[Rfam]
RNA: Glycine riboswitch aptamer
Organism: Croceicoccus ponticola
RNA sequence: GCUGACCGCGCGGGAGAGUGUUCGUGAUUCGGCCCAUCGGGCUGAAAAGCGGACCGCCGAAGGAGCAACCGCCCCGGAAUCUCUCAGGCACAAUGGACCGUGCCGGUCGA
Numbered sequence: 001g002c003u004g005a006c007c008g009c010g011c012g013g014g015a016g017a018g019u020g021u022u023c024g025u026g027a028u029u030c031g032g033c034c035c036a037u038c039g040g041g042c043u044g045a046a047a048a049g050c051g052g053a054c055c056g057c058c059g060a061a062g063g064a065g066c067a068a069c070c071g072c073c074c075c076g077g078a079a080u081c082u083c084u085c086a087g088g089c090a091c092a093a094u095g096g097a098c099c100g101u102g103c104c105g106g107u108c109g110a
Stems, first nucleotide, its partner, number of pairs: 006105001008103006020054006056089003059085002063083003069077002